[Rfam]
Rfam assigns this 105-nucleotide RNA sequence from Prunus yedoensis to the family "MIR6274 microRNA precursor family".
Its family is annotated with RISC complex and miRNA-mediated post-transcriptional gene silencing in the Gene Ontology.
A search with the family's covariance model found it, with a score of 90 bits.
The organism belongs to Prunus yedoensis, within Eukaryota.
RNA sequence: GGAUUGCACUGUUUUGUUAUCUUCGACCAAUAAUGCAAUGAUAUAUGAAAAAGUUAUUUCGCAUGUCAUUGCAUUAUUGGUCGAAGAUAGCAAAAACUGUUAUCC
Numbered sequence: 001g002g003a004u005u006g007c008a009c010u011g012u013u014u015u016g017u018u019a020u021c022u023u024c025g026a027c028c029a030a031u032a033a034u035g036c037a038a039u040g041a042u043a044u045a046u047g048a049a050a051a052a053g054u055u056a057u058u059u060c061g062c063a064u065g066u067c068a069u070u071g072c073a074u075u076a077u078u079g080g081u082c083g084a085a086g087a088u089a090g091c092a093a094a095a096a097c098u099g100u101u102a103u104c105c
Stems, first nucleotide, its partner, number of pairs: 002104003012095009022085023046061005